Yersinia sRNA 224: a 107-nucleotide RNA sequence from Yersinia ruckeri. Gene Ontology term of the family: response to temperature stimulus. The source organism's lineage runs through Bacteria, Gammaproteobacteria, Enterobacterales, Yersiniaceae and Yersinia. For this family Rfam cites "Temperature-responsive in vitro RNA structurome of Yersinia pseudotuberculosis" (Righetti et al., Proc Natl Acad Sci U S A, 2016). By type it is a small RNA. A search with the family's covariance model found it, with a score of 72 bits.
RNA sequence: GAGGUUAAUGACAAAGUGCUCGCUGCAGUGAAAACAGGUGGAUCGUCAAGACACCGUGAAUACGUCCUUGUCAACUCCUUCCACGCUAUCCCUGGCGCGGGCGUUUG
Numbered sequence: 001g002a003g004g005u006u007a008a009u010g011a012c013a014a015a016g017u018g019c020u021c022g023c024u025g026c027a028g029u030g031a032a033a034a035c036a037g038g039u040g041g042a043u044c045g046u047c048a049a050g051a052c053a054c055c056g057u058g059a060a061u062a063c064g065u066c067c068u069u070g071u072c073a074a075c076u077c078c079u080u081c082c083a084c085g086c087u088a089u090c091c092c093u094g095g096c097g098c099g100g101g102c103g104u105u106u107g
Stems, first nucleotide, its partner, number of pairs: 014106005020028001022026001030077002041066003045063002051057002081100002084097005